The record is a 74-nucleotide RNA from Sphingomonas taxi, which matches "Makes More Granules Regulator RNA (mmgR)" in Rfam.

RNA sequence: AGACCGUGCCUUUCAGGCAUCCUCUCCUAAAAACUUUUCGGCCGGUCGCAAGACCGGCCUUUUUUUUGGCCGCG
Number, nucleotide and partner (000 for none) at each position: 001a000002g000003a000004c000005c000006g000007u000008g018009c017010c016011u015012u000013u000014c000015a011016g010017g009018c008019a000020u000021c000022c000023u000024c000025u000026c000027c000028u000029a000030a000031a000032a000033a000034c000035u000036u000037u000038u000039c000040g059041g058042c057043c056044g055045g054046u053047c052048g000049c000050a000051a000052g047053a046054c045055c044056g043057g042058c041059c040060u000061u000062u000063u000064u000065u000066u000067u000068g000069g000070c000071c000072g000073c000074g000
Rfam classes the family as a small RNA. Pairs were carried over by alignment from the consensus structure. The family is grouped with related families in Rfam's "suhB sRNA clan".